RNA sequence: AAGCAGGAUAAGUUACAAUAUGGCAGUGUGGUGCUAUUUUGUCGUUCCCCCUGCUGAAAUAAAACUUGUUUCCUACUAUCCCUGACUGUUCAGUGUGGCAGGCAGGGACGCUUGGUCUCAAACAG
Numbered sequence: 001a002a003g004c005a006g007g008a009u010a011a012g013u014u015a016c017a018a019u020a021u022g023g024c025a026g027u028g029u030g031g032u033g034c035u036a037u038u039u040u041g042u043c044g045u046u047c048c049c050c051c052u053g054c055u056g057a058a059a060u061a062a063a064a065c066u067u068g069u070u071u072c073c074u075a076c077u078a079u080c081c082c083u084g085a086c087u088g089u090u091c092a093g094u095g096u097g098g099c100a101g102g103c104a105g106g107g108a109c110g111c112u113u114g115g116u117c118u119c120a121a122a123c124a125g
Base pairs, nucleotide, nucleotide: 003054004053005052006051007050015042016041017040018039020037021036022035023034024033081106082105083104084103086101087100088099089098
A member of the RNA family "Small nucleolar RNA SNORA63" from Aquarana catesbeiana, 125 nucleotides long.
Rfam's curators write: E3 belongs to the H/ACA class of snoRNAs and is involved in the processing of eukaryotic pre-rRNA and has regions of complementarity to 18S rRNA. E3 is encoded in introns in the gene for protein synthesis initiation factor 4AII.
Its family is annotated with nucleolus and RNA processing in the Gene Ontology.